[Rfam]
A member of the RNA family "SAM riboswitch aptamer (S box leader)" from Costertonia aggregata, 120 nucleotides long. Its family is annotated with regulation of gene expression in the Gene Ontology.
RNA sequence: UCGUUAUCAAGAAAGGUGGAGGGAUUGGACCCGAUGAAGCCUUAGCAACCCUUUAUCUUUAAAGAAGGUGCUACAUUCUAUCGUGUGCUGAUUUAGUUUCAGCAUCUCGGCAGAUAACAA
Dot-bracket structure: (.((((((....(((((...(((....[[)))......)))))((((.((((((......))))..))))))...(].]..((........................))..))))))).)